[Rfam]
RNA sequence: GUCAGGAACCUCAGCCUAAAGGCAUGAGGCUUGAAAGAGUAAUCGACAAGCCAUCCUGACCAGCCUAAGUACUUCGAGUACUACGUUUUUUGAGUCACGACACCAAAGAAUGCGAAGCUAGUUCCUUGCUCUGUCGCUGAAGGUUAAACAGUUCUAAGGUCACUGGAAUAGUGCUUUCAGCCGAACAAGCUCUUAAAACAUUGGCGAAGCUAACAUUAC
Numbered sequence: 001g002u003c004a005g006g007a008a009c010c011u012c013a014g015c016c017u018a019a020a021g022g023c024a025u026g027a028g029g030c031u032u033g034a035a036a037g038a039g040u041a042a043u044c045g046a047c048a049a050g051c052c053a054u055c056c057u058g059a060c061c062a063g064c065c066u067a068a069g070u071a072c073u074u075c076g077a078g079u080a081c082u083a084c085g086u087u088u089u090u091u092g093a094g095u096c097a098c099g100a101c102a103c104c105a106a107a108g109a110a111u112g113c114g115a116a117g118c119u120a121g122u123u124c125c126u127u128g129c130u131c132u133g134u135c136g137c138u139g140a141a142g143g144u145u146a147a148a149c150a151g152u153u154c155u156a157a158g159g160u161c162a163c164u165g166g167a168a169u170a171g172u173g174c175u176u177u178c179a180g181c182c183g184a185a186c187a188a189g190c191u192c193u194u195a196a197a198a199c200a201u202u203g204g205c206g207a208a209g210c211u212a213a214c215a216u217u218a219c
Stems, first nucleotide, its partner, number of pairs: 001060007010029002012026002015022002030050004063205003067201001068082005085199005092192004100134002104128003108124004116211004136181009148172002151169006
HNH endonuclease-associated RNA and ORF (HEARO) RNA: a 219-nucleotide RNA sequence from Plectonema radiosum. The family has 139 seed sequences and 952 matches in Rfam 15.1. Pairs were carried over by alignment from the consensus structure, which is taken from published work. For this family Rfam cites "Exceptional structured noncoding RNAs revealed by bacterial metagenome analysis" (Weinberg et al., Nature, 2009). A search with the family's covariance model found it, with a score of 161 bits. NCBI's taxonomy places the organism under Bacteria, Cyanobacteriota, Cyanophyceae, Oscillatoriales, Plectonema radiosum. The family's RNA type in Rfam is non-coding RNA gene.